[Rfam]
RNA sequence: GAGUUACGGCGUGCGGCGAGGUUAAGCUGGGAAGCGAGCCGCAGCGAGAGCGAGUCUGAACAGGGCGUUCAGUCGCGCGCCGUAGACGCGAAGCCAGGUGAGCUAUCCAUGGGCAGGCUGAAGCGGGGGUAAGACCCCGUGGAGGGCCGAACCCACCUAGGUUGAAAACUGGGGGGAUGACCCGUGGAUAGGAGUGAAAGGCCUAUCAAACCUGGAGAUAUCUCGUU
Numbered sequence: 001g002a003g004u005u006a007c008g009g010c011g012u013g014c015g016g017c018g019a020g021g022u023u024a025a026g027c028u029g030g031g032a033a034g035c036g037a038g039c040c041g042c043a044g045c046g047a048g049a050g051c052g053a054g055u056c057u058g059a060a061c062a063g064g065g066c067g068u069u070c071a072g073u074c075g076c077g078c079g080c081c082g083u084a085g086a087c088g089c090g091a092a093g094c095c096a097g098g099u100g101a102g103c104u105a106u107c108c109a110u111g112g113g114c115a116g117g118c119u120g121a122a123g124c125g126g127g128g129g130u131a132a133g134a135c136c137c138c139g140u141g142g143a144g145g146g147c148c149g150a151a152c153c154c155a156c157c158u159a160g161g162u163u164g165a166a167a168a169c170u171g172g173g174g175g176g177a178u179g180a181c182c183c184g185u186g187g188a189u190a191g192g193a194g195u196g197a198a199a200g201g202c203c204u205a206u207c208a209a210a211c212c213u214g215g216a217g218a219u220a221u222c223u224c225g226u227u
Base pairs, nucleotide, nucleotide: 005084006083007082008081009080010079011078012077013076014075015074016073017072020040021039022038023037026035027034028033044051045050054066055065056064057063087225088224090222094215095214096213097212098211099210103191104190105189106188107187108186109185110184111183112182113181114179116148117147118146119145123140124139125138126137127136128135152176153175154174156173157172158171159170160169194202195201
A member of the RNA family "Bacterial large subunit ribosomal RNA" from Olsenella sp. oral taxon 809, 227 nucleotides of a longer RNA. The base pairs follow the family's consensus structure, which is taken from published work. The organism belongs to Olsenella sp. oral taxon 809, within Bacteria.